Shown here is a 53-nucleotide sequence from Halomarina oriensis, a member of the family "leuA-Halobacteria RNA". Taxonomically the source falls in Halomarina (Archaea, Methanobacteriati, Methanobacteriota, Natronomonadaceae). Rfam classes the family as a cis-regulatory element.

[Rfam]
RNA sequence: GGCAGCCGAGGAUAGAGGAAGUCGCCGCAAGGCGGCUGGUCGAGAAAUUCUCC
Numbered sequence: 001g002g003c004a005g006c007c008g009a010g011g012a013u014a015g016a017g018g019a020a021g022u023c024g025c026c027g028c029a030a031g032g033c034g035g036c037u038g039g040u041c042g043a044g045a046a047a048u049u050c051u052c053c
Base pairs, nucleotide, nucleotide: 020037021036022035023034024033025032026031